[Rfam]
RNA: Small nucleolar RNA SNORA81
RNA sequence: ACCCUUCUGCAUAAAACGAAGUCUGCUAUAAUUGUGUGACUCAAAUUUUUGUUUCAUGCAAUAAUGCUAGCAGAGUAUUGCGUGGAAGGAGAUCAAAACUCACUGUACUGAAAAUGGGAUGUGGUCGAACCUCUUUCUUAAUGUUCAUUGGCCUCUGUCUCAAGGUGCAGUGACACAACU
Numbered sequence: 001a002c003c004c005u006u007c008u009g010c011a012u013a014a015a016a017c018g019a020a021g022u023c024u025g026c027u028a029u030a031a032u033u034g035u036g037u038g039a040c041u042c043a044a045a046u047u048u049u050u051g052u053u054u055c056a057u058g059c060a061a062u063a064a065u066g067c068u069a070g071c072a073g074a075g076u077a078u079u080g081c082g083u084g085g086a087a088g089g090a091g092a093u094c095a096a097a098a099c100u101c102a103c104u105g106u107a108c109u110g111a112a113a114a115u116g117g118g119a120u121g122u123g124g125u126c127g128a129a130c131c132u133c134u135u136u137c138u139u140a141a142u143g144u145u146c147a148u149u150g151g152c153c154u155c156u157g158u159c160u161c162a163a164g165g166u167g168c169a170g171u172g173a174c175a176c177a178a179c180u
Stems, first nucleotide, its partner, number of pairs: 022074001024072005031065004037056002042051003100173008122151001124149001127146003